[Rfam]
RNA sequence: GCAGUUGGCCGGUCUGUCGCGUGUACAUUUUGUACAGGAGGAAAGUCCGGGCAACAUAGAGCAUCCUACUUCCUAACAGAAAGCUGUCCGCGAGGGUAGAGUAACGUAGAAGAAAAUAACCGCCUCUCCUUUCGGGGAGAGGUAAGGGUGAGAAGGUGGGGUAAGAGCCUACCAGCUACAUGGCGACAUGUAGGCUGUGCGUCUUGGGAGUUGUAAGGUCAUGUAUACCGGCGUUAUGAGAGUCGCUCGCUCCAUGUCGGAGGGUAGACCGCUAAAGUGACUUGGUGACAUUUCACUCAGAUAAAUGACAGACACCUUGAUUUAUUAAGGUACAGAACCCGGCUUACAGGCUGACUGCUUUU
Numbered sequence: 001g002c003a004g005u006u007g008g009c010c011g012g013u014c015u016g017u018c019g020c021g022u023g024u025a026c027a028u029u030u031u032g033u034a035c036a037g038g039a040g041g042a043a044a045g046u047c048c049g050g051g052c053a054a055c056a057u058a059g060a061g062c063a064u065c066c067u068a069c070u071u072c073c074u075a076a077c078a079g080a081a082a083g084c085u086g087u088c089c090g091c092g093a094g095g096g097u098a099g100a101g102u103a104a105c106g107u108a109g110a111a112g113a114a115a116a117u118a119a120c121c122g123c124c125u126c127u128c129c130u131u132u133c134g135g136g137g138a139g140a141g142g143u144a145a146g147g148g149u150g151a152g153a154a155g156g157u158g159g160g161g162u163a164a165g166a167g168c169c170u171a172c173c174a175g176c177u178a179c180a181u182g183g184c185g186a187c188a189u190g191u192a193g194g195c196u197g198u199g200c201g202u203c204u205u206g207g208g209a210g211u212u213g214u215a216a217g218g219u220c221a222u223g224u225a226u227a228c229c230g231g232c233g234u235u236a237u238g239a240g241a242g243u244c245g246c247u248c249g250c251u252c253c254a255u256g257u258c259g260g261a262g263g264g265u266a267g268a269c270c271g272c273u274a275a276a277g278u279g280a281c282u283u284g285g286u287g288a289c290a291u292u293u294c295a296c297u298c299a300g301a302u303a304a305a306u307g308a309c310a311g312a313c314a315c316c317u318u319g320a321u322u323u324a325u326u327a328a329g330g331u332a333c334a335g336a337a338c339c340c341g342g343c344u345u346a347c348a349g350g351c352u353g354a355c356u357g358c359u360u361u362u
Stems, first nucleotide, its partner, number of pairs: 001358010011347001012313007020038001022036006043345003047342005052213004059248004064209005069083003073079001084099001086097004100204002104202005120147002122143009155173006175195001176193007217270004228260005240252004277296004283290002